[Rfam]
Nucleotides: 129
Base pairs, nucleotide, nucleotide: 002056003055004054005053006052007050008049009048012045013044015043016042017041018040019039020038024034025033026032067121068120069119070118071117072116073115080110081109082108083107084106086104087103089101091099
Number, partner (000 for none) and nucleotide at each position: 001000u002056c003055c004054g005053a006052g007050a008049c009048u010000a011000g012045a013044g014000u015043c016042a017041c018040a019039u020038c021000u022000g023000a024034a025033c026032a027000c028000a029000a030000c031000u032026u033025g034024u035000c036000c037000u038020g039019g040018u041017g042016u043015g044013c045012u046000a047000g048009a049008g050007u051000c052006c053005u054004c055003g056002g057000a058000c059000a060000g061000u062000a063000a064000c065000c066000a067121c068120u069119a070118a071117u072116c073115u074000a075000u076000a077000u078000u079000c080110a081109c082108u083107g084106g085000c086104u087103g088000c089101g090000a091099u092000c093000a094000u095000u096000c097000u098000u099091g100000a101089c102000c103087c104086a105000g106084u107083c108082a109081g110080u111000c112000a113000c114000c115073a116072g117071g118070u119069u120068a121067g122000u123000g124000a125000c126000a127000g128000u129000c